[Rfam]
RNA sequence: UCUCCUGGCCCAUCCGGCUGGGAAUGUCCCCGAGACAGUUUCCAGCCCGAGUGGGUGUGUUGGAGG
Number, nucleotide and partner (000 for none) at each position: 001u064002c063003u062004c000005c059006u000007g000008g056009c055010c054011c053012a052013u051014c000015c049016g048017g046018c045019u044020g043021g042022g041023a040024a039025u038026g036027u000028c000029c034030c000031c000032g000033a000034g029035a000036c026037a000038g025039u024040u023041u022042c021043c020044a019045g018046c017047c000048c016049g015050a000051g013052u012053g011054g010055g009056u008057g000058u000059g005060u000061u000062g003063g002064a001065g000066g000
A member of the RNA family "mir-1180 microRNA precursor family" from Suricata suricatta, 66 nucleotides long. The family's consensus secondary structure was predicted with RNAalifold.